[Rfam]
The family of this 137-nucleotide RNA sequence from Myotis myotis is "small Cajal body-specific RNA 17". By type it is a small Cajal body RNA.
RNA sequence: CUCCCGGUUUCCCAGUGUAGCCCCCGGAAGAGCCCCUAGUAUUUUCCUUAAAAGAUUGGGCCCCAAGGCUGGCGGCGAUGCCGGCCCAGAGCAUAAGAGGAUUAUAAAGGUCAGGCGAAGUGGGGCCAGGGGAUGAG
Numbered sequence: 001c002u003c004c005c006g007g008u009u010u011c012c013c014a015g016u017g018u019a020g021c022c023c024c025c026g027g028a029a030g031a032g033c034c035c036c037u038a039g040u041a042u043u044u045u046c047c048u049u050a051a052a053a054g055a056u057u058g059g060g061c062c063c064c065a066a067g068g069c070u071g072g073c074g075g076c077g078a079u080g081c082c083g084g085c086c087c088a089g090a091g092c093a094u095a096a097g098a099g100g101a102u103u104a105u106a107a108a109g110g111u112c113a114g115g116c117g118a119a120g121u122g123g124g125g126c127c128a129g130g131g132g133a134u135g136a137g
Base pairs, nucleotide, nucleotide: 005137009133010132011131012130013129020126021125022124023123024122056096057095058094060092061091063089068085069084070083071082072081073080074079
Description:
The match comes from Rfam's covariance-model search (95 bits). scaRNAs are a specific class of small nuclear RNAs which localise to the Cajal bodies and guide the modification of RNA polymerase II transcribed spliceosomal RNAs U1, U2, U4, U5 and U12. The complete human U12-22/U4-8 scaRNA is composed of two tandem C/D box domains (termed U12-22 and U4-8). The organism belongs to Myotis, within Eukaryota. Gene Ontology terms of the family: RNA processing, nucleolus and Cajal body. A reference for the family is Tycowski et al. (2004), "Guide RNAs with 5' Caps and Novel Box C/D snoRNA-like Domains for Modification of snRNAs in Metazoa", Curr Biol.